The record is a 331-nucleotide sequence from Colobus angolensis, which matches "Mason-Pfizer monkey virus packaging signal" in Rfam. Lineage of the source: Eukaryota > Eumetazoa > Sarcopterygii > Tetrapoda > Colobus angolensis. The family's RNA type in Rfam is cis-regulatory element.
RNA sequence: UGGCGCCCAACGCGAGGCUUGGAUACGAGGGAAUUACGUGAGGAAGAGGUCGCAAGAGGUCGACGAUUCAAGUAAAAGAAAAAUCCCUUCCGCCGCCGCGGGAGCCUGCUGCGUCGGAAUUGGGGUGAGUUACGCGCCCGAAAUGGGACAAGAAUUAAGCCAGCAUCAGAUUUACGUAGGACAGUUAAAAGAGGCUUUAAACACACGGGGAAAAAAAAAAUAGCAAAAAAAAAUAAAAAUAAAAAAUAAAAAAAAAUAAAGACACGGGCAGUGAAGGUUAAAAGUGGUGAUUUAUUUAAAUUCUUUGAUUUUGUAAAAGACACUUGCCCUU
Numbered sequence: 001u002g003g004c005g006c007c008c009a010a011c012g013c014g015a016g017g018c019u020u021g022g023a024u025a026c027g028a029g030g031g032a033a034u035u036a037c038g039u040g041a042g043g044a045a046g047a048g049g050u051c052g053c054a055a056g057a058g059g060u061c062g063a064c065g066a067u068u069c070a071a072g073u074a075a076a077a078g079a080a081a082a083a084u085c086c087c088u089u090c091c092g093c094c095g096c097c098g099c100g101g102g103a104g105c106c107u108g109c110u111g112c113g114u115c116g117g118a119a120u121u122g123g124g125g126u127g128a129g130u131u132a133c134g135c136g137c138c139c140g141a142a143a144u145g146g147g148a149c150a151a152g153a154a155u156u157a158a159g160c161c162a163g164c165a166u167c168a169g170a171u172u173u174a175c176g177u178a179g180g181a182c183a184g185u186u187a188a189a190a191g192a193g194g195c196u197u198u199a200a201a202c203a204c205a206c207g208g209g210g211a212a213a214a215a216a217a218a219a220a221u222a223g224c225a226a227a228a229a230a231a232a233a234u235a236a237a238a239a240u241a242a243a244a245a246a247u248a249a250a251a252a253a254a255a256a257u258a259a260a261g262a263c264a265c266g267g268g269c270a271g272u273g274a275a276g277g278u279u280a281a282a283a284g285u286g287g288u289g290a291u292u293u294a295u296u297u298a299a300a301u302u303c304u305u306u307g308a309u310u311u312u313g314u315a316a317a318a319g320a321c322a323c324u325u326g327c328c329c330u331u
Stems, first nucleotide, its partner, number of pairs: 006031003012026001014024001036050002039047001085125004093117002097113005134149001137147004156199003159195003206307007216293003316331002319328001321326001